[Rfam]
Source information: Rfam assigns this 47-nucleotide RNA sequence from Lactuca sativa to the family "Plastid-ycf3 group II-D1 intron". Rfam describes the family as follows. Plastid rpl16 is a non-coding RNA (ncRNA) recognised in plastids. Taxonomically the source falls in Lactuca (Eukaryota, Streptophyta, Pentapetalae, Asteraceae). On this family, see Richter et al., Plant Commun 2023: "Retrograde signaling in plants: A critical review focusing on the GUN pathway and beyond". Pairs were carried over by alignment from the consensus structure, which was predicted with LocARNA. Gene Ontology term of the family: Group II intron splicing.
RNA sequence: AAACCUUCUGUCGUGUAUUCCCGAUUAAUGCAGCCUUAGAUGCUUCA
Numbered sequence: 001a002a003a004c005c006u007u008c009u010g011u012c013g014u015g016u017a018u019u020c021c022c023g024a025u026u027a028a029u030g031c032a033g034c035c036u037u038a039g040a041u042g043c044u045u046c047a
Base pairs, nucleotide, nucleotide: 010025011024012023013022032044033043034042